[Rfam]
RNA sequence: CCACCAUCAUCAUUUGCAAGCAUAACCUUUCAGGUUGGUGCUGGAAGGGUCGUGUUUCCUUUCCAGUGGUAAGAAGAUAAAUCUCAAACCCUCGAAAGGAAACUUUUGAGGGUUUUUCUU
Number, nucleotide and partner (000 for none) at each position: 001c000002c000003a000004c000005c000006a000007u000008c040009a039010u038011c037012a036013u000014u034015u000016g000017c000018a000019a000020g031021c000022a000023u000024a000025a000026c000027c000028u000029u000030u000031c020032a000033g000034g014035u000036u012037g011038g010039u009040g008041c066042u065043g064044g063045a062046a061047g060048g059049g000050u000051c000052g000053u000054g000055u000056u000057u000058c000059c048060u047061u046062u045063c044064c043065a042066g041067u000068g000069g000070u000071a000072a000073g000074a000075a000076g000077a000078u000079a000080a000081a000082u000083c000084u000085c000086a115087a114088a113089c112090c111091c110092u109093c108094g107095a106096a105097a104098g103099g000100a000101a000102a000103c098104u097105u096106u095107u094108g093109a092110g091111g090112g089113u088114u087115u086116u000117u000118c000119u000120u000
RNA: Histidine operon leader